[Rfam]
RNA sequence: UCCUCACCAAAGCUGCGUUUCUUUGCUUCCACACAGACAGAAUGAGCAAUCAUUUCGUCCUUUUACCACUUGCAAAUGAGAAAUUCGGAGUAAUCUUCACAUAACCACAACUCACCUUGCAACCACUUUCACGAGUUGGGCACAAGCUCUGAGUCACUGCCUGCGAGGGCCUGACGUGACACGUCUGCACCUGGCAUCAGAAAUUUCAGAACGUCUUGACUGGCCAAAAAGCUGCUUCACGGUGGCUUUUUUGAAAGGGAGAGAUAGCGUUUCUAUGGGAGCCGGUGCGAAGAUUGUAUGCAAAGUCUGACUUUGCGAUACUUGAGUGCAAUACGCAGCGUUUCUUCUACGAAGGAAUAAUUCGAUUCCGAUUACUCGGGUGAGGA
Numbered sequence: 001u002c003c004u005c006a007c008c009a010a011a012g013c014u015g016c017g018u019u020u021c022u023u024u025g026c027u028u029c030c031a032c033a034c035a036g037a038c039a040g041a042a043u044g045a046g047c048a049a050u051c052a053u054u055u056c057g058u059c060c061u062u063u064u065a066c067c068a069c070u071u072g073c074a075a076a077u078g079a080g081a082a083a084u085u086c087g088g089a090g091u092a093a094u095c096u097u098c099a100c101a102u103a104a105c106c107a108c109a110a111c112u113c114a115c116c117u118u119g120c121a122a123c124c125a126c127u128u129u130c131a132c133g134a135g136u137u138g139g140g141c142a143c144a145a146g147c148u149c150u151g152a153g154u155c156a157c158u159g160c161c162u163g164c165g166a167g168g169g170c171c172u173g174a175c176g177u178g179a180c181a182c183g184u185c186u187g188c189a190c191c192u193g194g195c196a197u198c199a200g201a202a203a204u205u206u207c208a209g210a211a212c213g214u215c216u217u218g219a220c221u222g223g224c225c226a227a228a229a230a231g232c233u234g235c236u237u238c239a240c241g242g243u244g245g246c247u248u249u250u251u252u253g254a255a256a257g258g259g260a261g262a263g264a265u266a267g268c269g270u271u272u273c274u275a276u277g278g279g280a281g282c283c284g285g286u287g288c289g290a291a292g293a294u295u296g297u298a299u300g301c302a303a304a305g306u307c308u309g310a311c312u313u314u315g316c317g318a319u320a321c322u323u324g325a326g327u328g329c330a331a332u333a334c335g336c337a338g339c340g341u342u343u344c345u346u347c348u349a350c351g352a353a354g355g356a357a358u359a360a361u362u363c364g365a366u367u368c369c370g371a372u373u374a375c376u377c378g379g380g381u382g383a384g385g386a
Base pairs, nucleotide, nucleotide: 001386002385003384004383007380008379014338019333022076023075024074025073040055041054042053043052044051045050086370087369088368089367090366095292096291097290098289159170160169161168162167173185174184175183176182187288188287189286190285191284193282208274209273210272340358341357342356343355344354345353346352

The family of this 386-nucleotide RNA from Aureobasidium melanogenum is "Nuclear RNase P". Rfam describes the family as follows. Ribonuclease P (RNase P) is a ubiquitous endoribonuclease, found in archaea, bacteria and eukarya as well as chloroplasts and mitochondria. Taxonomically the source falls in Aureobasidium melanogenum (Eukaryota, Opisthokonta, Dothideomycetidae, Dothideales). Rfam classes the family as a ribozyme. Its family is annotated with ribonuclease P complex, tRNA processing and ribonuclease P activity in the Gene Ontology.